[Rfam]
RNA sequence: GCUGAGUUGGGUAACGCCAGCUUGUAACUCAAGUGAGGGCAUUACGGUGGUGGGAUAAUACUGUGGUUUCACUGGGUUGGGCUUUGAUUGCAAAAUGCUGGUCUGCCCACUCCAAGUUGAGAGCUGACCCACGGGUCCUGAGCGAAGGCUUGGGUCUCUUGAGUCCUAAAGUGGAUGGCAAUGCGUAAGGCUGGUUUCACAGAGCAGCGAAAACCUCCCUCUCCCGACAGUGGAGGGAUAGCAGACUGCUGUAUUCAUGGCCCUGUAUGCUCAGUGAGCCCAGCUUACUUAGACCACCCACUGUU
Numbered sequence: 001g002c003u004g005a006g007u008u009g010g011g012u013a014a015c016g017c018c019a020g021c022u023u024g025u026a027a028c029u030c031a032a033g034u035g036a037g038g039g040c041a042u043u044a045c046g047g048u049g050g051u052g053g054g055a056u057a058a059u060a061c062u063g064u065g066g067u068u069u070c071a072c073u074g075g076g077u078u079g080g081g082c083u084u085u086g087a088u089u090g091c092a093a094a095a096u097g098c099u100g101g102u103c104u105g106c107c108c109a110c111u112c113c114a115a116g117u118u119g120a121g122a123g124c125u126g127a128c129c130c131a132c133g134g135g136u137c138c139u140g141a142g143c144g145a146a147g148g149c150u151u152g153g154g155u156c157u158c159u160u161g162a163g164u165c166c167u168a169a170a171g172u173g174g175a176u177g178g179c180a181a182u183g184c185g186u187a188a189g190g191c192u193g194g195u196u197u198c199a200c201a202g203a204g205c206a207g208c209g210a211a212a213a214c215c216u217c218c219c220u221c222u223c224c225c226g227a228c229a230g231u232g233g234a235g236g237g238a239u240a241g242c243a244g245a246c247u248g249c250u251g252u253a254u255u256c257a258u259g260g261c262c263c264u265g266u267a268u269g270c271u272c273a274g275u276g277a278g279c280c281c282a283g284c285u286u287a288c289u290u291a292g293a294c295c296a297c298c299c300a301c302u303g304u305u
Stems, first nucleotide, its partner, number of pairs: 001040003004023007028037003044304006050297004056291002059287002061283003065280002068278010079263005085257002089253002093250001099248008107237002110235005116228004121223003126165003130161002133158003137154007166171001173218003177214001182211001184209003191202003
About this RNA
The record is a 305-nucleotide RNA from Vigna angularis, which matches "Plant signal recognition particle RNA" in Rfam.